[Rfam]
RNA sequence: AUCCGAGUGCACGGGCGUUUUCCUUCUCCGUGAAGCGAUAAGCUGAGAGAGGAAUUUUGCUAGUUGAAAACUAUACACAAACCGCUCCUAGUUGGGUUCGCCUGGCUAGGGAAUUUUUGGAACUCUAUCAAAUUCCAUUGGA
Numbered sequence: 001a002u003c004c005g006a007g008u009g010c011a012c013g014g015g016c017g018u019u020u021u022c023c024u025u026c027u028c029c030g031u032g033a034a035g036c037g038a039u040a041a042g043c044u045g046a047g048a049g050a051g052g053a054a055u056u057u058u059g060c061u062a063g064u065u066g067a068a069a070a071c072u073a074u075a076c077a078c079a080a081a082c083c084g085c086u087c088c089u090a091g092u093u094g095g096g097u098u099c100g101c102c103u104g105g106c107u108a109g110g111g112a113a114u115u116u117u118u119g120g121a122a123c124u125c126u127a128u129c130a131a132a133u134u135c136c137a138u139u140g141g142a
Base pairs, nucleotide, nucleotide: 020054021053022052023051024050026049027048028047034044035043036042086111087110088109089108090107091106092105093104094103095102096101124142125141126140127139
RNA: U4 spliceosomal RNA
Organism: Geosmithia morbida